[Rfam]
RNA sequence: UUUGGAUCAUCUCCAUCCAGCUUCUCUCCAUCCCCUCUCCAUCCAAAAUCUGAGCCGUUGAUUAGGAAUUUUAAAUGUGAGGAUUAAUUCAUGUUUUCUCUCUCUUCUUAAAUUGAUCCAAGCCUUUAAAUACAAUUCAUUUUUUUCUCUUUCUUCUCAAAUUGAUCCCCACCUUUAAAAUUUAAAAUUAAUGACUCAAAUUUUGGAUGGAGAGGGGAUGGAGAGAAGCUGGAUGGAGAGGAUCCAAA
Dot-bracket structure: .(((((((.((((((((((((((((((((((((((((((((((((((((.((((.((((((((..(((..(((((.(...((((...((.(.................(.(((((((..((....))..)).))))).).................)..))...))))...).)))))..)))..)))))))).)))).)))))))))))))))))))))))))))))))))))))))).))))))).
A member of the RNA family "MIR7533 microRNA precursor family" from Lotus japonicus, 248 nucleotides long. The sequence is in the family's curated seed alignment. Its family is annotated with RISC complex and miRNA-mediated post-transcriptional gene silencing in the Gene Ontology. The base pairs follow the family's consensus structure, which was predicted with RNAalifold. The organism belongs to Lotus, within Eukaryota.